Notes
Clostridiales-1 RNA: a 154-nucleotide RNA sequence from Butyrivibrio proteoclasticus. Rfam 15.1 lists 1,172 matches to the family in 137 species. Taxonomically the source falls in Butyrivibrio proteoclasticus (Bacteria, Bacillota, Clostridia, Lachnospiraceae). By type it is a small RNA.
[Rfam]
RNA sequence: CGAUAAAUAGGUAACAGAAUGGGAUGCAUAGCAUGCUAGCAUGCAUUAUGCAUCCCAUUAUAGUUACUGUAACGGAUAUGAGUAAAUAGCACGAUAGUGCGGUUUACGAAUGUCCGUCAGAUUGCGGGAGCAAAGCGGAGCAAUCUGUUUAUCG
Numbered sequence: 001c002g003a004u005a006a007a008u009a010g011g012u013a014a015c016a017g018a019a020u021g022g023g024a025u026g027c028a029u030a031g032c033a034u035g036c037u038a039g040c041a042u043g044c045a046u047u048a049u050g051c052a053u054c055c056c057a058u059u060a061u062a063g064u065u066a067c068u069g070u071a072a073c074g075g076a077u078a079u080g081a082g083u084a085a086a087u088a089g090c091a092c093g094a095u096a097g098u099g100c101g102g103u104u105u106a107c108g109a110a111u112g113u114c115c116g117u118c119a120g121a122u123u124g125c126g127g128g129a130g131c132a133a134a135g136c137g138g139a140g141c142a143a144u145c146u147g148u149u150u151a152u153c154g
Stems, first nucleotide, its partner, number of pairs: 001154007011067004016061001018059013031044005072117008082107004089100004119146007130136002